The family of this 94-nucleotide sequence from Pengzhenrongella sicca is "ZMP/ZTP riboswitch aptamer (pfl RNA motif)". NCBI's taxonomy places the organism under Bacteria, Actinomycetota, Actinomycetes, Micrococcales, Pengzhenrongella.

[Rfam]
RNA sequence: GGCCUCGGCCGUGACUGGCGUACCUGAGGUGGAUGCAACCACCGGGGAGCGGCCGCAGCAGUCCGCCGGAGCGCCGUUCGCCUGGGUGCCUGGG
Numbered sequence: 001g002g003c004c005u006c007g008g009c010c011g012u013g014a015c016u017g018g019c020g021u022a023c024c025u026g027a028g029g030u031g032g033a034u035g036c037a038a039c040c041a042c043c044g045g046g047g048a049g050c051g052g053c054c055g056c057a058g059c060a061g062u063c064c065g066c067c068g069g070a071g072c073g074c075c076g077u078u079c080g081c082c083u084g085g086g087u088g089c090c091u092g093g094g
Base pairs, nucleotide, nucleotide: 003058006055007054008053009052010051011050012049015046016045017082018081019080020079029042030041031040032039071089072088073087074086075085